[Rfam]
RNA sequence: CCUGGCGCGGCCGCGAGCUGCAUCCCGUGCGGCUGCAGUGCUGCGUGUAGCACCAUGGGAUUCAGCUCACGGCGCGCCACU
Dot-bracket structure: ..(((((....(..((.(((..(((((((...(((((........)))))...)))))))..))).))...)..)))))..
Numbered sequence: 001c002c003u004g005g006c007g008c009g010g011c012c013g014c015g016a017g018c019u020g021c022a023u024c025c026c027g028u029g030c031g032g033c034u035g036c037a038g039u040g041c042u043g044c045g046u047g048u049a050g051c052a053c054c055a056u057g058g059g060a061u062u063c064a065g066c067u068c069a070c071g072g073c074g075c076g077c078c079a080c081u
Stems, first nucleotide, its partner, number of pairs: 003079005012072001015068002018065003023060007033050005